[Rfam]
RNA sequence: CCAAAGGCUCUUUUCAGAGCCACCCAGCUUUUCAAGCGGAAGCUG
Numbered sequence: 001c002c003a004a005a006g007g008c009u010c011u012u013u014u015c016a017g018a019g020c021c022a023c024c025c026a027g028c029u030u031u032u033c034a035a036g037c038g039g040a041a042g043c044u045g
Stems, first nucleotide, its partner, number of pairs: 006021006
Background:
The family of this 45-nucleotide sequence from Orycteropus afer is "Histone 3' UTR stem-loop". Pairs were carried over by alignment from the consensus structure, which is taken from published work. For this family Rfam cites "Molecular mechanisms for the regulation of histone mRNA stem-loop-binding protein by phosphorylation" (Zhang et al., Proc Natl Acad Sci U S A, 2014).